[Rfam]
RNA sequence: UACAAAUAAAUCGUAAUUGCCUAUAUAAUGCCGUGAUAUGGUCGGCGAGUUUCUACCCAAAGCCGUAAACUUUGGACUAUAAGCAAACUGAGUGAAUCA
Numbered sequence: 001u002a003c004a005a006a007u008a009a010a011u012c013g014u015a016a017u018u019g020c021c022u023a024u025a026u027a028a029u030g031c032c033g034u035g036a037u038a039u040g041g042u043c044g045g046c047g048a049g050u051u052u053c054u055a056c057c058c059a060a061a062g063c064c065g066u067a068a069a070c071u072u073u074g075g076a077c078u079a080u081a082a083g084c085a086a087a088c089u090g091a092g093u094g095a096a097u098c099a
Stems, first nucleotide, its partner, number of pairs: 018085003022081004029047005057075006
Dot-bracket structure: .................(((.((((...(((((.........))))).........((((((.......))))))..)))).)))..............
RNA: Purine riboswitch aptamer